[Rfam]
RNA: TPP riboswitch aptamer (THI element)
RNA sequence: ACCUCGGGGUGCCCGUUCGCGCGGGCUGAGAUGCGGCAACGCGAACCCGUCGAACCUGAACCGGCUAGCACCGGCGGAGGGAAGGU
Numbered sequence: 001a002c003c004u005c006g007g008g009g010u011g012c013c014c015g016u017u018c019g020c021g022c023g024g025g026c027u028g029a030g031a032u033g034c035g036g037c038a039a040c041g042c043g044a045a046c047c048c049g050u051c052g053a054a055c056c057u058g059a060a061c062c063g064g065c066u067a068g069c070a071c072c073g074g075c076g077g078a079g080g081g082a083a084g085g086u
Stems, first nucleotide, its partner, number of pairs: 001086004005049004010043001011026005033042003055080003061074004